[Rfam]
RNA sequence: AUAGCCGCGUCGGGAGAGAUCGGCCUUUCAGCUUUCUUGAGCUCGGAGGUCGGCGCCGAAGGAGCAACCGCCCCGGAAACUCUCAGGCAAAAGGACCGCGCGGCUUC
Dot-bracket structure: ....(((((.(((......(((((((((................))))))))).(((((..(((...((.....))...))))).))).......))))))))....
RNA: Glycine riboswitch aptamer